Background:
A member of the RNA family "Bacterial RNase P class A" from Aquimarina sp. MMG016, 311 nucleotides long. The match comes from Rfam's covariance-model search (206 bits).
RNA sequence: AAAGCAGAUCACCUUAUCGUCAUCCGCCAUAGGCAGAUGGAGGAAAGUCCGGACACCGUAGCACAGUAUAGCGGGUAACGCCCGUCCGUCGCGAGAUGAGGACAAGUGCAACAGAAAGAAUGUACAGGUAAUGCUGUAGUGAAAUCAGGUAAACUCUAUACGGUGCAACGCCACGUAAACCAGCUUUUGAGGGUUGUGCGCCCGAUGUUGGAGGGUAGGCGGUUAGAGCUAAUAAGUAAUUAUUAGUCUAGAUAAAUGAUAAGGGUUCACCUUUGGUGGAAACAGAAUCCGGCUUAUGAUCUGCUUUUUUU
Numbered sequence: 001a002a003a004g005c006a007g008a009u010c011a012c013c014u015u016a017u018c019g020u021c022a023u024c025c026g027c028c029a030u031a032g033g034c035a036g037a038u039g040g041a042g043g044a045a046a047g048u049c050c051g052g053a054c055a056c057c058g059u060a061g062c063a064c065a066g067u068a069u070a071g072c073g074g075g076u077a078a079c080g081c082c083c084g085u086c087c088g089u090c091g092c093g094a095g096a097u098g099a100g101g102a103c104a105a106g107u108g109c110a111a112c113a114g115a116a117a118g119a120a121u122g123u124a125c126a127g128g129u130a131a132u133g134c135u136g137u138a139g140u141g142a143a144a145u146c147a148g149g150u151a152a153a154c155u156c157u158a159u160a161c162g163g164u165g166c167a168a169c170g171c172c173a174c175g176u177a178a179a180c181c182a183g184c185u186u187u188u189g190a191g192g193g194u195u196g197u198g199c200g201c202c203c204g205a206u207g208u209u210g211g212a213g214g215g216u217a218g219g220c221g222g223u224u225a226g227a228g229c230u231a232a233u234a235a236g237u238a239a240u241u242a243u244u245a246g247u248c249u250a251g252a253u254a255a256a257u258g259a260u261a262a263g264g265g266u267u268c269a270c271c272u273u274u275g276g277u278g279g280a281a282a283c284a285g286a287a288u289c290c291g292g293c294u295u296a297u298g299a300u301c302u303g304c305u306u307u308u309u310u311u
Stems, first nucleotide, its partner, number of pairs: 001307011012264007020040005026034003045295003049292005054165004061199004066161005071085005086100001087098004101156002106154002108150002123138005169221004180211005191203004228247008